Rfam assigns this 102-nucleotide sequence from Peribacillus muralis to the family "Purine riboswitch aptamer". From the family's description: Riboswitches are metabolite binding domains within certain messenger RNAs that serve as precision sensors for their corresponding targets. NCBI's taxonomy places the organism under Bacteria, Bacillati, Bacillota, Caryophanales, Peribacillus.

[Rfam]
RNA sequence: UAAUAAUAAAAACAUAAUCGUCGUAUAAUGUUGGGGAUAUGGCCCAAAAGUUUCUACCAAGCUGCCGUUAACGGCUUGACUACGAUGUGAAUGGAUUGGCCU
Numbered sequence: 001u002a003a004u005a006a007u008a009a010a011a012a013c014a015u016a017a018u019c020g021u022c023g024u025a026u027a028a029u030g031u032u033g034g035g036g037a038u039a040u041g042g043c044c045c046a047a048a049a050g051u052u053u054c055u056a057c058c059a060a061g062c063u064g065c066c067g068u069u070a071a072c073g074g075c076u077u078g079a080c081u082a083c084g085a086u087g088u089g090a091a092u093g094g095a096u097u098g099g100c101c102u
Stems, first nucleotide, its partner, number of pairs: 019087007029049001031047005058078007